[Rfam]
RNA sequence: GGAUUCAUGAUGAGCUGUUUAGUAAGGAUAAAUAAGUGAAGUUCAAAAUGAUUAUUCUGAAGUUC
Numbered sequence: 001g002g003a004u005u006c007a008u009g010a011u012g013a014g015c016u017g018u019u020u021a022g023u024a025a026g027g028a029u030a031a032a033u034a035a036g037u038g039a040a041g042u043u044c045a046a047a048a049u050g051a052u053u054a055u056u057c058u059g060a061a062g063u064u065c
Stems, first nucleotide, its partner, number of pairs: 001065005012057003018051002023045001025043002
Dot-bracket structure: (((((......(((...((...(.((...............)).)....))...)))...)))))

Small Nucleolar RNA SNORD64: a 65-nucleotide RNA sequence from Otolemur garnettii.
The sequence is in the family's curated seed alignment.
NCBI's taxonomy places the organism under Eukaryota, Chordata, Dipnotetrapodomorpha, Theria, Otolemur.
For this family Rfam cites "The IC-SNURF-SNRPN transcript serves as a host for multiple small nucleolar RNA species and as an antisense RNA for UBE3A" (Runte et al., Hum Mol Genet, 2001).
The human snoRNA HBII-13 belongs to the C/D family of snoRNAs. It is expressed mainly in the brain, but is also in the lungs, the kidneys and muscle.
Pairs were carried over by alignment from the consensus structure, which was predicted with RNAalifold.
Gene Ontology terms of the family: nucleolus and RNA processing.